[Rfam]
RNA sequence: CGCUUAUGGAGAAAGACGGAGGGAUUAGACCCUGCGAUGUCUUAGCAACCUGUGCUUACAAGGUGCUACAUUCUACUUAGCUGCAAACUAAGCAGUUAAGACAGAUAAGCG
Numbered sequence: 001c002g003c004u005u006a007u008g009g010a011g012a013a014a015g016a017c018g019g020a021g022g023g024a025u026u027a028g029a030c031c032c033u034g035c036g037a038u039g040u041c042u043u044a045g046c047a048a049c050c051u052g053u054g055c056u057u058a059c060a061a062g063g064u065g066c067u068a069c070a071u072u073c074u075a076c077u078u079a080g081c082u083g084c085a086a087a088c089u090a091a092g093c094a095g096u097u098a099a100g101a102c103a104g105a106u107a108a109g110c111g
Stems, first nucleotide, its partner, number of pairs: 001111007013043005021032003026075004044067004049063002051060003071103001076100009
Dot-bracket structure: (((((((.....(((((...(((..[[[[)))......)))))((((.(((((....))).))))))...(]]]](((((((((.......)))))))))..).)))))))

The record is a 111-nucleotide RNA from Mucilaginibacter sp. JRF, which matches "SAM riboswitch aptamer (S box leader)" in Rfam. NCBI's taxonomy places the organism under Bacteria, Pseudomonadati, Bacteroidota, Sphingobacteriia, Mucilaginibacter.